[Rfam]
Shown here is a 74-nucleotide RNA from Zea mays, a member of the family "Small nucleolar RNA U54". Taxonomically the source falls in Zea (Eukaryota, Streptophytina, Mesangiospermae, Poaceae). Rfam's curators write: U54 is a C/D box small nucleolar RNA, which acts as a methylation guide for 18S ribosomal RNA in plants. The base pairs follow the family's consensus structure, which was predicted with PFOLD.

RNA sequence: UGUUCAAUGAUUCAACCAUGGUAAUAUAUGCUAUUCUGAUCUACACAAGGAUACCAUCAAUAUUUAUGAGAGCG
Numbered sequence: 001u002g003u004u005c006a007a008u009g010a011u012u013c014a015a016c017c018a019u020g021g022u023a024a025u026a027u028a029u030g031c032u033a034u035u036c037u038g039a040u041c042u043a044c045a046c047a048a049g050g051a052u053a054c055c056a057u058c059a060a061u062a063u064u065u066a067u068g069a070g071a072g073c074g
Stems, first nucleotide, its partner, number of pairs: 001074005